The record is a 73-nucleotide sequence from Pipistrellus kuhlii, which matches "mir-9223 microRNA precursor family" in Rfam. Rfam 15.1 lists 14,641 matches to the family in 28 species. Taxonomically the source falls in Pipistrellus (Eukaryota, Teleostomi, Mammalia, Chiroptera).
[Rfam]
RNA sequence: GGCAGUUCUUGUGUGACACCCUGGACUCUGGCUUCCUCCUCUCUAGUUCAGGGUGUGUCACCUGAGAACCACA
Numbered sequence: 001g002g003c004a005g006u007u008c009u010u011g012u013g014u015g016a017c018a019c020c021c022u023g024g025a026c027u028c029u030g031g032c033u034u035c036c037u038c039c040u041c042u043c044u045a046g047u048u049c050a051g052g053g054u055g056u057g058u059c060a061c062c063u064g065a066g067a068a069c070c071a072c073a
Base pairs, nucleotide, nucleotide: 002072005069006068007067008066009065010064011063013061014060015059016058017055018054019053020052021051023049024048025047026046027045030043031042